[Rfam]
RNA: Group II catalytic intron D1-D4-6
Organism: Noviherbaspirillum pedocola
RNA sequence: AAAGUCCACUGCGAUGAAGGUGUAGCGAACCACAUCGGCCCCGAGCCGUGCGUGGUCGUCCGUGAGGGCGGCUGCGAAGCGUCGGUAGGGGUGCAUGUAGGCCAGCCAUGGAGCCACGAAAUGGUUUAUUUCCCGGAUGCCGACGUACUCCAGUAUGCGGAAGGCAAUACGUACGGGCGCGCUAUCGCUAGCGCCCGGCGGUCCGGCGUGGUCGAAGACCC
Numbered sequence: 001a002a003a004g005u006c007c008a009c010u011g012c013g014a015u016g017a018a019g020g021u022g023u024a025g026c027g028a029a030c031c032a033c034a035u036c037g038g039c040c041c042c043g044a045g046c047c048g049u050g051c052g053u054g055g056u057c058g059u060c061c062g063u064g065a066g067g068g069c070g071g072c073u074g075c076g077a078a079g080c081g082u083c084g085g086u087a088g089g090g091g092u093g094c095a096u097g098u099a100g101g102c103c104a105g106c107c108a109u110g111g112a113g114c115c116a117c118g119a120a121a122u123g124g125u126u127u128a129u130u131u132c133c134c135g136g137a138u139g140c141c142g143a144c145g146u147a148c149u150c151c152a153g154u155a156u157g158c159g160g161a162a163g164g165c166a167a168u169a170c171g172u173a174c175g176g177g178c179g180c181g182c183u184a185u186c187g188c189u190a191g192c193g194c195c196c197g198g199c200g201g202u203c204c205g206g207c208g209u210g211g212u213c214g215a216a217g218a219c220c221c
Stems, first nucleotide, its partner, number of pairs: 012037005019031003023190004039091004045086004049081002051076011111213001113212006133206006139165003144159004170200002174197007